[Rfam]
RNA sequence: CCGCCCGUCGCUCCUGCCAAUGGAUCGGCUGGAGAGAGCGAGAGAUCGACCAGGGUAACACCCUCGCGUUGUAGACCUCCCUCGAUCCGUCAGUAUCUAAAGGAAGGAGAAGUCGUAACAAGGUUUCCGUAGGUGAACCUGCAGAAGGAUCAUCG
Numbered sequence: 001c002c003g004c005c006c007g008u009c010g011c012u013c014c015u016g017c018c019a020a021u022g023g024a025u026c027g028g029c030u031g032g033a034g035a036g037a038g039c040g041a042g043a044g045a046u047c048g049a050c051c052a053g054g055g056u057a058a059c060a061c062c063c064u065c066g067c068g069u070u071g072u073a074g075a076c077c078u079c080c081c082u083c084g085a086u087c088c089g090u091c092a093g094u095a096u097c098u099a100a101a102g103g104a105a106g107g108a109g110a111a112g113u114c115g116u117a118a119c120a121a122g123g124u125u126u127c128c129g130u131a132g133g134u135g136a137a138c139c140u141g142c143a144g145a146a147g148g149a150u151c152a153u154c155g
Stems, first nucleotide, its partner, number of pairs: 001122001003119001006115002009112001011109005017103002021099005026093001028091001030089004036083003040079003046073001047071004051066001052064004124147004129142005
This 155-nucleotide part of an RNA from Bigelowiella natans belongs to the Rfam family "Eukaryotic small subunit ribosomal RNA". NCBI's taxonomy places the organism under Eukaryota, Sar, Rhizaria, Chlorarachniophyceae, Bigelowiella. The family has 90 seed sequences and 75,755 matches in Rfam 15.1. The sequence is in the family's curated seed alignment. Its Rfam clan is "SSU clan".